The family of this 184-nucleotide RNA sequence from Lynx pardinus is "Small nucleolar RNA SNORA23". From the family's description: The members of this family belong to the H/ACA class of snoRNAs which are thought to guide the sites of modification of uridines to pseudouridines. Gene Ontology terms of the family: RNA processing and nucleolus. A reference for the family is Huttenhofer et al. (2001), "RNomics: an experimental approach that identifies 201 candidates for novel, small, non-messenger RNAs in mouse", EMBO J. The family's consensus secondary structure was predicted with RNAalifold.
RNA sequence: GAUAUAAUGUGUGCAUAGUUUUCAUCUGUGUCUGAUAGCAGUGUCUGCCUGUGUUUUGCAUUCAGAUCUUGCUAUCCACACAAACAUCAUGCAGCCAAAGAGUAAGUUGGGAUCAUAGUACUGGUCUAGUGUUGUCUCUUUGGACAUCUCUACCACUGGCCAGCCUCCAGAUUCCCACACAAAA
Numbered sequence: 001g002a003u004a005u006a007a008u009g010u011g012u013g014c015a016u017a018g019u020u021u022u023c024a025u026c027u028g029u030g031u032c033u034g035a036u037a038g039c040a041g042u043g044u045c046u047g048c049c050u051g052u053g054u055u056u057u058g059c060a061u062u063c064a065g066a067u068c069u070u071g072c073u074a075u076c077c078a079c080a081c082a083a084a085c086a087u088c089a090u091g092c093a094g095c096c097a098a099a100g101a102g103u104a105a106g107u108u109g110g111g112a113u114c115a116u117a118g119u120a121c122u123g124g125u126c127u128a129g130u131g132u133u134g135u136c137u138c139u140u141u142g143g144a145c146a147u148c149u150c151u152a153c154c155a156c157u158g159g160c161c162a163g164c165c166u167c168c169a170g171a172u173u174c175c176c177a178c179a180c181a182a183a184a
Stems, first nucleotide, its partner, number of pairs: 013092004029082003033078002036074006043067005050060003108177005121163006128157004134147002137144002